[Rfam]
RNA sequence: AGGCAACCCCUUUGCGAUGACAAUGGCAAAGGAGGUGUUUAGCUGCUCGGAAAGUAAGUUCUUUUGCUCUUCAGACUUGCUGAGAUGACUCUUUGAAGCUGGUCUAGUAAGCAUUAGUACAUU
Numbered sequence: 001a002g003g004c005a006a007c008c009c010c011u012u013u014g015c016g017a018u019g020a021c022a023a024u025g026g027c028a029a030a031g032g033a034g035g036u037g038u039u040u041a042g043c044u045g046c047u048c049g050g051a052a053a054g055u056a057a058g059u060u061c062u063u064u065u066g067c068u069c070u071u072c073a074g075a076c077u078u079g080c081u082g083a084g085a086u087g088a089c090u091c092u093u094u095g096a097a098g099c100u101g102g103u104c105u106a107g108u109a110a111g112c113a114u115u116a117g118u119a120c121a122u123u
Base pairs, nucleotide, nucleotide: 002039003038004037005036007035008034009032010031011030012029013028014027015026017024061117062116066112067111068110073105074104075103076102077101079099080098081097084091085090

Rfam assigns this 123-nucleotide RNA from Rosa chinensis to the family "Small nucleolar RNA snoR77". Pairs were carried over by alignment from the consensus structure, which was predicted with WAR. It scores 111 bits against the family's covariance model.